RNA sequence: ACCACUCUGGAAAGCAGGCUCGCCAGGAGCCUCACCAACGGUGCAAGCCGCAGCCGCGGCGAAGCUCUCAGGUACCCAUGACAGAGGGGGAGUU
Numbered sequence: 001a002c003c004a005c006u007c008u009g010g011a012a013a014g015c016a017g018g019c020u021c022g023c024c025a026g027g028a029g030c031c032u033c034a035c036c037a038a039c040g041g042u043g044c045a046a047g048c049c050g051c052a053g054c055c056g057c058g059g060c061g062a063a064g065c066u067c068u069c070a071g072g073u074a075c076c077c078a079u080g081a082c083a084g085a086g087g088g089g090g091a092g093u094u
Stems, first nucleotide, its partner, number of pairs: 002089002005086005016032004034073003038068001041067001043065001047060004
This 94-nucleotide RNA from Actinocrispum wychmicini belongs to the Rfam family "Glycine riboswitch aptamer". The source organism's lineage runs through Bacteria, Bacillati, Actinomycetota, Pseudonocardiaceae and Actinocrispum. It scores 44 bits against the family's covariance model. Rfam describes the family as follows. This family represents the bacterial glycine riboswitch.